The record is a 183-nucleotide RNA sequence from Rhynchospora breviuscula, which matches "MIR408 microRNA precursor family" in Rfam. A reference for the family is Sunkar and Zhu (2004), "Novel and stress-regulated microRNAs and other small RNAs from Arabidopsis", Plant Cell.
Nucleotides: 183
Base pairs, nucleotide, nucleotide: 015166016165017164019162020161021160022159023158024157027154028153029152030151032149034147035146036145037144038143040142045136046135047134
Number, partner (000 for none) and nucleotide at each position: 001000g002000a003000a004000u005000g006000g007000a008000g009000a010000u011000a012000a013000u014000a015166a016165a017164g018000a019162c020161a021160g022159g023158g024157a025000c026000g027154a028153g029152g030151c031000c032149g033000a034147g035146c036145a037144u038143g039000g040142g041000a042000u043000g044000u045136g046135g047134c048000u049000a050000u051000c052000a053000a054000c055000a056000a057000g058000u059000g060000u061000a062000u063000c064000c065000a066000c067000a068000u069000g070000g071000u072000g073000a074000a075000u076000u077000g078000g079000u080000a081000u082000u083000g084000g085000a086000c087000c088000a089000u090000u091000g092000g093000u094000g095000g096000g097000g098000a099000a100000u101000u102000g103000a104000g105000a106000a107000g108000g109000a110000g111000a112000g113000a114000a115000a116000u117000a118000u119000u120000c121000g122000a123000g124000u125000u126000g127000u128000g129000u130000u131000g132000g133000u134047g135046c136045c137000c138000c139000g140000u141000u142040c143038c144037a145036u146035g147034c148000a149032c150000u151030g152029c153028c154027u155000c156000u157024u158023c159022c160021c161020u162019g163000g164017c165016u166015u167000u168000c169000c170000c171000u172000u173000u174000u175000c176000u177000c178000u179000u180000g181000c182000u183000c
The match comes from Rfam's covariance-model search (69 bits).